[Rfam]
RNA sequence: GGGUGGAUUCCCGAGUGGCCAAAGGGGGCAGACUGUAAAUCUGUUGUCAACGACUUCGAUGGUUCGAAUCCAUCUCCACCCA
Numbered sequence: 001g002g003g004u005g006g007a008u009u010c011c012c013g014a015g016u017g018g019c020c021a022a023a024g025g026g027g028g029c030a031g032a033c034u035g036u037a038a039a040u041c042u043g044u045u046g047u048c049a050a051c052g053a054c055u056u057c058g059a060u061g062g063u064u065c066g067a068a069u070c071c072a073u074c075u076c077c078a079c080c081c082a
Base pairs, nucleotide, nucleotide: 001081002080003079004078005077006076007075010026011025012024028044029043030042031041032040058074059073060072061071062070
Background
Rfam assigns this 82-nucleotide RNA from Lachnospiraceae bacterium XBB2008 to the family "tRNA". The match comes from Rfam's covariance-model search (54 bits). The base pairs follow the family's consensus structure, which is taken from published work. Rfam describes the family as follows. Transfer RNA (tRNA) molecules are approximately 80 nucleotides in length.